[Rfam]
RNA: Small Cajal body specific RNA 6
Organism: Cairina moschata
RNA sequence: GGUCGAUGAUGACUAGUAAAAGGUCUGAUGGCACAGGGGAGUUACACCCCAUUACCGUCUUGGCUCCCAGCAGUCCUUGUUCUGUCAUGCCAUAGUCGAGCUAUGACUGAGAAAGAGAGUGCUGACAGUUUGGGAUUCAUUCAGUUCCAGUUCUCCACAGUGAAGGGGUUGUGGCACUGAAUGUCAUCCAACAGACGUGGUUAAGAGGAGCUUGUGGUAAUGGAGUGUCUUCAUUGGUUGUGUGUGAUCUAAAGUUUUCAAGCUGAGACC
Numbered sequence: 001g002g003u004c005g006a007u008g009a010u011g012a013c014u015a016g017u018a019a020a021a022g023g024u025c026u027g028a029u030g031g032c033a034c035a036g037g038g039g040a041g042u043u044a045c046a047c048c049c050c051a052u053u054a055c056c057g058u059c060u061u062g063g064c065u066c067c068c069a070g071c072a073g074u075c076c077u078u079g080u081u082c083u084g085u086c087a088u089g090c091c092a093u094a095g096u097c098g099a100g101c102u103a104u105g106a107c108u109g110a111g112a113a114a115g116a117g118a119g120u121g122c123u124g125a126c127a128g129u130u131u132g133g134g135a136u137u138c139a140u141u142c143a144g145u146u147c148c149a150g151u152u153c154u155c156c157a158c159a160g161u162g163a164a165g166g167g168g169u170u171g172u173g174g175c176a177c178u179g180a181a182u183g184u185c186a187u188c189c190a191a192c193a194g195a196c197g198u199g200g201u202u203a204a205g206a207g208g209a210g211c212u213u214g215u216g217g218u219a220a221u222g223g224a225g226u227g228u229c230u231u232c233a234u235u236g237g238u239u240g241u242g243u244g245u246g247a248u249c250u251a252a253a254g255u256u257u258u259c260a261a262g263c264u265g266a267g268a269c270c
Base pairs, nucleotide, nucleotide: 001270002269003268004267035250036249037248046226047225049223050222051221052220053219064210065209066208067207068124069123070122071121072120074118081110082109084107085106086105087104088103089102090100132189134188135187136186138183139182147174148173149172153168154167155166156165